[Rfam]
RNA sequence: GCCGAGCUCAGUUGCGCGAGCUUGUAAUCCAAGUGGAGGCAUUUCGUGCUUUGAAUGAUUGUACUGGUUCCGUAGGCUAGGUACUGACCCAUCCGAUCCAAGAUGGGCAGUGAUGUUUCUUGUCUGGGCAAAAGUUUGGGUUAGAAACCUCCAGAAUUGGAGAGGAAAGCGUGAAGCUGGUUUAACAGAGCAACGAUUACCUCUAGCUCUCGUCGGUGGAUGGAUGACAAGCCAGUGGGCCAAGCAACCCAUUUAAGCUCUUGGGUCGACUUUACAAUCAAACAAAGCAUUUU
Numbered sequence: 001g002c003c004g005a006g007c008u009c010a011g012u013u014g015c016g017c018g019a020g021c022u023u024g025u026a027a028u029c030c031a032a033g034u035g036g037a038g039g040c041a042u043u044u045c046g047u048g049c050u051u052u053g054a055a056u057g058a059u060u061g062u063a064c065u066g067g068u069u070c071c072g073u074a075g076g077c078u079a080g081g082u083a084c085u086g087a088c089c090c091a092u093c094c095g096a097u098c099c100a101a102g103a104u105g106g107g108c109a110g111u112g113a114u115g116u117u118u119c120u121u122g123u124c125u126g127g128g129c130a131a132a133a134g135u136u137u138g139g140g141u142u143a144g145a146a147a148c149c150u151c152c153a154g155a156a157u158u159g160g161a162g163a164g165g166a167a168a169g170c171g172u173g174a175a176g177c178u179g180g181u182u183u184a185a186c187a188g189a190g191c192a193a194c195g196a197u198u199a200c201c202u203c204u205a206g207c208u209c210u211c212g213u214c215g216g217u218g219g220a221u222g223g224a225u226g227a228c229a230a231g232c233c234a235g236u237g238g239g240c241c242a243a244g245c246a247a248c249c250c251a252u253u254u255a256a257g258c259u260c261u262u263g264g265g266u267c268g269a270c271u272u273u274a275c276a277a278u279c280a281a282a283c284a285a286a287g288c289a290u291u292u293u
Base pairs, nucleotide, nucleotide: 001040002039003038004023005022006021007020008019009018028037029036030035046290047289048288049287050286051285052284053283056280057279059277060276061275065268066267067266069265070264071263072262075259076258077257078256080249081248082247086240088238090237091236092227093223094222096221097220098219099218100217102214103213104212105211106210107209109208110207111206112151113150115148116147117146118145119144120143122141123140124139125138126137127136128135129134158205159204160203161202162201168197170195171194172193177188178187179186
Dot-bracket structure: (((((((((........))))))....(((....)))))).....((((((((..((.(((...(((.((((..((((.(((...(.(.(((((.(((((.((((((.(((((.((((((.((((((((....)))))))).)))))).))......(((((.....(.(((....(((......)))....))).)...))))))))))))))..)))))))...)........))).)......)))......))))..)))))))......))).))..))))))))...
The family of this 293-nucleotide sequence from Dendrobium catenatum is "Plant signal recognition particle RNA".
A search with the family's covariance model found it, with a score of 134 bits.
Clan: SRP clan.
Lineage of the source: Eukaryota > Streptophyta > Streptophytina > Dendrobieae > Dendrobium.
Rfam classes the family as a non-coding RNA gene.
Rfam links the family to the GO terms SRP-dependent cotranslational protein targeting to membrane, signal sequence recognition and signal recognition particle, endoplasmic reticulum targeting.
The base pairs follow the family's consensus structure, which is taken from published work.